[Rfam]
Nucleotides: 095
Stems, first nucleotide, its partner, number of pairs: 004089011017075004024068005035060004043052003
Number, partner (000 for none) and nucleotide at each position: 001000g002000c003000g004089g005088g006087a007086g008085u009084c010083g011082g012081g013080u014079g015000g016000a017075c018074g019073u020072u021000c022000g023000c024068g025067u026066c027065c028064g029000c030000c031000a032000a033000c034000c035060u036059g037058g038057u039000c040000a041000g042000g043052u044051c045050c046000g047000g048000a049000a050045g051044g052043a053000a054000g055000c056000a057038g058037c059036c060035a061000c062000a063000a064028c065027g066026g067025a068024u069000g070000g071000c072020a073019g074018c075017g076000g077000g078000u079014c080013g081012c082011c083010c084009g085008g086007c087006u088005c089004c090000u091000u092000u093000u094000c095000u